A member of the RNA family "U4 spliceosomal RNA" from Plasmodiophora brassicae, 136 nucleotides long. The literature on the family includes a 2018 paper in Science by Bai et al., "Structures of the fully assembled Saccharomyces cerevisiae spliceosome before activation". From the family's description: U4 small nuclear RNA (U4 snRNA) is a component of the major U2-dependent spliceosome. Rfam 15.1 lists 32,178 matches to the family in 2,547 species. Clan: U4 clan. A search with the family's covariance model found it, with a score of 93 bits. Rfam classes the family as a spliceosomal small nuclear RNA.
RNA sequence: AUCUUUGCGCACGGGCAACAUCGUAGGAAAUGAGGUGCAAACCGAUCCACGAUAAUUGCUGAUUGAAAACUAUUCCGAACCCCCAGUUGUCACCUCUGCUUGCAAGUGCCAACUGAAUUUCUGGCACCCAUUUUGG
Numbered sequence: 001a002u003c004u005u006u007g008c009g010c011a012c013g014g015g016c017a018a019c020a021u022c023g024u025a026g027g028a029a030a031u032g033a034g035g036u037g038c039a040a041a042c043c044g045a046u047c048c049a050c051g052a053u054a055a056u057u058g059c060u061g062a063u064u065g066a067a068a069a070c071u072a073u074u075c076c077g078a079a080c081c082c083c084c085a086g087u088u089g090u091c092a093c094c095u096c097u098g099c100u101u102g103c104a105a106g107u108g109c110c111a112a113c114u115g116a117a118u119u120u121c122u123g124g125c126a127c128c129c130a131u132u133u134u135g136g
Stems, first nucleotide, its partner, number of pairs: 020053005026048003034043003084115006091108003095104001131136001